[Rfam]
RNA sequence: GCCCAAUUUCGCACGUGCCUGUGGUCGCGUGUCGGUUGGCGGGGUUCGGACAAGAGGCCGAUAAACCGUCAGAUCCAACCGGCAGCCGGAGGCGAACCGGCGAACCCCGUCUCAAACGGGGGACGCGACUUAAAGCAACGACGGACCGGGCUUUU
Numbered sequence: 001g002c003c004c005a006a007u008u009u010c011g012c013a014c015g016u017g018c019c020u021g022u023g024g025u026c027g028c029g030u031g032u033c034g035g036u037u038g039g040c041g042g043g044g045u046u047c048g049g050a051c052a053a054g055a056g057g058c059c060g061a062u063a064a065a066c067c068g069u070c071a072g073a074u075c076c077a078a079c080c081g082g083c084a085g086c087c088g089g090a091g092g093c094g095a096a097c098c099g100g101c102g103a104a105c106c107c108c109g110u111c112u113c114a115a116a117c118g119g120g121g122g123a124c125g126c127g128a129c130u131u132a133a134a135g136c137a138a139c140g141a142c143g144g145a146c147c148g149g150g151c152u153u154u155u
Stems, first nucleotide, its partner, number of pairs: 001151004009141003016137003023130008031079002034076002037071005086100004101122001105121006
Shown here is a 155-nucleotide sequence from Lichenibacterium minor, a member of the family "Alphaproteobacterial sRNA ar45". NCBI's taxonomy places the organism under Bacteria, Pseudomonadati, Alphaproteobacteria, Lichenihabitantaceae, Lichenibacterium. The literature on the family includes a 2012 paper in RNA Biol by del Val et al., "A survey of sRNA families in alpha-proteobacteria". It scores 65 bits against the family's covariance model. By type it is a small RNA. Pairs were carried over by alignment from the consensus structure.